[Rfam]
RNA: Small nucleolar RNA SNORD34
Organism: Solanum commersonii
RNA sequence: CAAGGCCUAUGAUGGAAUUUGAUAACAUGCCUACAUUGUCUGAUCAUAUAAGUUUGAUUGAGCAACAUUAACUGAGGCCUUG
Numbered sequence: 001c002a003a004g005g006c007c008u009a010u011g012a013u014g015g016a017a018u019u020u021g022a023u024a025a026c027a028u029g030c031c032u033a034c035a036u037u038g039u040c041u042g043a044u045c046a047u048a049u050a051a052g053u054u055u056g057a058u059u060g061a062g063c064a065a066c067a068u069u070a071a072c073u074g075a076g077g078c079c080u081u082g
Base pairs, nucleotide, nucleotide: 001082002081004079005078006077007076